[Rfam]
RNA sequence: GCAGUUUGGGUCUGUGGUUGAAAGUCGAAGCCAGUCGCAGGCGAAACGAUCCACGUAAGCGGGGCAAUGUUCCCGUGAGCAUGGUGCGGUCUAGAUAUAAGUCCAACCGGUCUUUCCGAGAGGGGCAGUAGUGAGAGGCGAACGCCGGGUAGCGAACCCUCCAGUUGGCGAGUGUGGGGGCAAAGACCAGGUCAGCCGGAUCAA
Numbered sequence: 001g002c003a004g005u006u007u008g009g010g011u012c013u014g015u016g017g018u019u020g021a022a023a024g025u026c027g028a029a030g031c032c033a034g035u036c037g038c039a040g041g042c043g044a045a046a047c048g049a050u051c052c053a054c055g056u057a058a059g060c061g062g063g064g065c066a067a068u069g070u071u072c073c074c075g076u077g078a079g080c081a082u083g084g085u086g087c088g089g090u091c092u093a094g095a096u097a098u099a100a101g102u103c104c105a106a107c108c109g110g111u112c113u114u115u116c117c118g119a120g121a122g123g124g125g126c127a128g129u130a131g132u133g134a135g136a137g138g139c140g141a142a143c144g145c146c147g148g149g150u151a152g153c154g155a156a157c158c159c160u161c162c163a164g165u166u167g168g169c170g171a172g173u174g175u176g177g178g179g180g181c182a183a184a185g186a187c188c189a190g191g192u193c194a195g196c197c198g199g200a201u202c203a204a
Base pairs, nucleotide, nucleotide: 004202007198008197009196012195013194014193015189016188017187018186019185028175030173031041034090035089036088037087038086039085050084051083058076061073062072063071082182103168104167105166106165107164108118109117110116122161123160124159125158131153132152137146138145139144
RNA: raiA RNA